[Rfam]
SAM/SAH riboswitch aptamer: a 50-nucleotide sequence from Aliiroseovarius crassostreae.
The source organism's lineage runs through Bacteria, Pseudomonadota, Alphaproteobacteria, Paracoccaceae and Aliiroseovarius.
A reference for the family is Weickhmann et al. (2019), "The structure of the SAM/SAH-binding riboswitch", Nucleic Acids Res.
Rfam links the family to the GO terms regulation of gene expression and S-adenosylmethionine metabolic process.

RNA sequence: CCCCCGUCACAACGGCUUCCUGGCGUGAUGGGGAUUGUAUCAAUGGAGCA
Numbered sequence: 001c002c003c004c005c006g007u008c009a010c011a012a013c014g015g016c017u018u019c020c021u022g023g024c025g026u027g028a029u030g031g032g033g034a035u036u037g038u039a040u041c042a043a044u045g046g047a048g049c050a
Stems, first nucleotide, its partner, number of pairs: 004031007013022002015049003019046002